Small nucleolar RNA SNORD26: a 71-nucleotide RNA sequence from Thamnophis sirtalis. Clan: SNORD26 clan. By type it is a C/D-box small nucleolar RNA. Its family is annotated with RNA processing and nucleolus in the Gene Ontology. Rfam 15.1 lists 451 matches to the family in 401 species. A search with the family's covariance model found it, with a score of 66 bits. The source organism's lineage runs through Eukaryota, Gnathostomata, Amniota, Unidentata and Thamnophis.

RNA sequence: CUACAAUGAAGAGAUCCAGAACUCUCUCUUUCUGAUGGUUUAAUGGAGAAAUUAAAACGGAUCUGAGUGGC
Dot-bracket structure: ((((..............................................................)))).